[Rfam]
Rfam assigns this 103-nucleotide RNA from Arabidopsis thaliana to the family "Small Cajal body specific RNA ncR20". By type it is a small Cajal body RNA.

RNA sequence: GAAUCGUUAAAUUUGACGAAAGGGUACGUAAAAGAACUUCCUUUUUGAUGAUUUAUCUAUAUAUUAGACGUAAUUGAUUGUUUCUGAUUUAAGUAUCGUGGCA
Dot-bracket structure: (((((((((........(((((((...((......)).)))))))))))))))).((((.....))))..........((((..((((......)))).))))

Rfam's curators put it in the seed alignment.